[Rfam]
RNA: Small nucleolar RNA SNORD72
Organism: Pipistrellus kuhlii
Nucleotides: 073
Stems, first nucleotide, its partner, number of pairs: 002072002005069004
Number, partner (000 for none) and nucleotide at each position: 001000a002072u003071u004000c005069a006068g007067u008066g009000a010000g011000u012000g013000a014000u015000a016000u017000a018000a019000a020000a021000a022000u023000a024000a025000a026000u027000g028000u029000c030000u031000g032000g033000a034000c035000a036000u037000g038000a039000a040000u041000u042000c043000a044000a045000u046000a047000u048000u049000g050000a051000u052000a053000u054000c055000a056000g057000c058000a059000u060000u061000u062000a063000a064000g065000u066008c067007a068006u069005u070000a071003a072002a073000a